Source information:
The record is a 130-nucleotide RNA sequence from Pieris macdunnoughi, which matches "U4atac minor spliceosomal RNA" in Rfam. Its family is annotated with mRNA 5'-splice site recognition, U4atac snRNP and spliceosomal tri-snRNP complex assembly in the Gene Ontology. The organism belongs to Pieris, within Eukaryota.
RNA sequence: CUCUUCCUUGUCUUGGGGAGCAUAGUGCGCAGUGAUCGUAAAGUGAGAGCACUGAUGCUGACACCCAAAGGUUUAUAACCAUCCCCGCGCCCGGCUGCCUUUUGGGAGUCCGAGCGCAAUUUUUGAAUGG
Numbered sequence: 001c002u003c004u005u006c007c008u009u010g011u012c013u014u015g016g017g018g019a020g021c022a023u024a025g026u027g028c029g030c031a032g033u034g035a036u037c038g039u040a041a042a043g044u045g046a047g048a049g050c051a052c053u054g055a056u057g058c059u060g061a062c063a064c065c066c067a068a069a070g071g072u073u074u075a076u077a078a079c080c081a082u083c084c085c086c087g088c089g090c091c092c093g094g095c096u097g098c099c100u101u102u103u104g105g106g107a108g109u110c111c112g113a114g115c116g117c118a119a120u121u122u123u124u125g126a127a128u129g130g
Stems, first nucleotide, its partner, number of pairs: 005019005020058004024053005030047001037043001087117004092112001094109003098105002
For this family Rfam cites "Evolutionary conservation of minor U12-type spliceosome between plants and humans" (Lorkovic et al., RNA, 2005). From the family's description: U4atac is an essential component of the minor U12-type spliceosome complex which is required for removal of the rarer class of eukaryotic introns (AT-AC, U12-type). The base pairs follow the family's consensus structure, which is taken from published work. It scores 83 bits against the family's covariance model. Rfam 15.1 lists 1,648 matches to the family in 818 species.